[Rfam]
RNA: Small nucleolar RNA SNORD25
Organism: Cucurbita maxima
RNA sequence: CGUAACGGUGAUGAGCCUUUUGCAGACCUGUAAUGAUUUGCGAAUAUGAUCGCAAUAUCAUACGAACAUCUAAGGGACUGAGUUGCU
Numbered sequence: 001c002g003u004a005a006c007g008g009u010g011a012u013g014a015g016c017c018u019u020u021u022g023c024a025g026a027c028c029u030g031u032a033a034u035g036a037u038u039u040g041c042g043a044a045u046a047u048g049a050u051c052g053c054a055a056u057a058u059c060a061u062a063c064g065a066a067c068a069u070c071u072a073a074g075g076g077a078c079u080g081a082g083u084u085g086c087u
Stems, first nucleotide, its partner, number of pairs: 002086005